Shown here is a 118-nucleotide sequence from Leptotrichia sp. oral taxon 215, a member of the family "azaaromatic riboswitch aptamer (yjdF RNA)".
[Rfam]
RNA sequence: CUUUGCGAAGAUAAAAACACAACGUAUUUUAAUUAUACAGUUCCAGUUGGUAGUCUGGACACAGUUAAAACUGUAAGUAACCUUCCUCCUUGGGUCGUCCAUUCUUUGCUCAUUAAAU
Numbered sequence: 001c002u003u004u005g006c007g008a009a010g011a012u013a014a015a016a017a018c019a020c021a022a023c024g025u026a027u028u029u030u031a032a033u034u035a036u037a038c039a040g041u042u043c044c045a046g047u048u049g050g051u052a053g054u055c056u057g058g059a060c061a062c063a064g065u066u067a068a069a070a071c072u073g074u075a076a077g078u079a080a081c082c083u084u085c086c087u088c089c090u091u092g093g094g095u096c097g098u099c100c101a102u103u104c105u106u107u108g109c110u111c112a113u114u115a116a117a118u
Stems, first nucleotide, its partner, number of pairs: 005109007040060002043058004061074005085094003